[Rfam]
RNA sequence: GAACGGAUCGCGCGUUUGUGCCCUAACACGGCACUUCAUGACAUUAUUGUCUCCCCGCCCGUGACCACGGAUGUACUGGCGCGGCGGGUUGAGAUGAUGAGGAAGGUCGGGCCUGUCCCGGCCUUUUUUAUU
Dot-bracket structure: (.(.(((...........................))).)..).....((((((..((((..((.(((.........))))).))))....))))))((((((((((((((.......)))))))))))))).
This 132-nucleotide RNA sequence from Ensifer meliloti belongs to the Rfam family "Alphaproteobacterial sRNA ar35". Rfam 15.1 lists 266 matches to the family in 153 species. The literature on the family includes a 2012 paper in RNA Biol by del Val et al., "A survey of sRNA families in alpha-proteobacteria". The source organism's lineage runs through Bacteria, Pseudomonadati, Pseudomonadota, Rhizobiaceae and Ensifer meliloti. The family's RNA type in Rfam is small RNA.